[Rfam]
RNA sequence: GAAACAACUUUAGCGCCAGGGCUCUCCUUUAGGAAGUUGUGAUUUCCGCGCGGCGGAAGGUUUUUUGGGAGAGUUGACGAGGAGGGGGAUCUCGGAAUCAUCGGCGGGUGACCCCCGGUGUAACCACCACCGUAAAAGGCCCGACAAAUCCGGCAGUGAUGCCUGGGACAAUAGGGACCUUGAGUGAAUUG
Numbered sequence: 001g002a003a004a005c006a007a008c009u010u011u012a013g014c015g016c017c018a019g020g021g022c023u024c025u026c027c028u029u030u031a032g033g034a035a036g037u038u039g040u041g042a043u044u045u046c047c048g049c050g051c052g053g054c055g056g057a058a059g060g061u062u063u064u065u066u067g068g069g070a071g072a073g074u075u076g077a078c079g080a081g082g083a084g085g086g087g088g089a090u091c092u093c094g095g096a097a098u099c100a101u102c103g104g105c106g107g108g109u110g111a112c113c114c115c116c117g118g119u120g121u122a123a124c125c126a127c128c129a130c131c132g133u134a135a136a137a138g139g140c141c142c143g144a145c146a147a148a149u150c151c152g153g154c155a156g157u158g159a160u161g162c163c164u165g166g167g168a169c170a171a172u173a174g175g176g177a178c179c180u181u182g183a184g185u186g187a188a189u190u191g
Base pairs, nucleotide, nucleotide: 020075021074022073023072024071025070026069027068084115085114086113087112093104095102096101116132117131118130119129120128136181137180138179139178141176142175150166151165152163153162154161155160
RNA: glmS glucosamine-6-phosphate activated ribozyme aptamer